RNA sequence: GGAGGCGUACGUGUUCCUGGUGGGCGCCGCGGUCUUCAAAACCGACGUGGCCCGGUAUCCGGGCCAGGCAGGUUCGAUUCCUGUCCGCCUCC
Numbered sequence: 001g002g003a004g005g006c007g008u009a010c011g012u013g014u015u016c017c018u019g020g021u022g023g024g025c026g027c028c029g030c031g032g033u034c035u036u037c038a039a040a041a042c043c044g045a046c047g048u049g050g051c052c053c054g055g056u057a058u059c060c061g062g063g064c065c066a067g068g069c070a071g072g073u074u075c076g077a078u079u080c081c082u083g084u085c086c087g088c089c090u091c092c
Base pairs, nucleotide, nucleotide: 001092002091003090004089005088006087007086009084011027012026013025015024016023017022030044031043032042033041048066049065050064051063052062069083070082071081072080
A member of the RNA family "Selenocysteine transfer RNA" from Actinophytocola oryzae, 92 nucleotides long. The base pairs follow the family's consensus structure, which is taken from published work. A reference for the family is Mizutani and Goto (2000), "Eukaryotic selenocysteine tRNA has the 9/4 secondary structure", FEBS Lett. It scores 72 bits against the family's covariance model.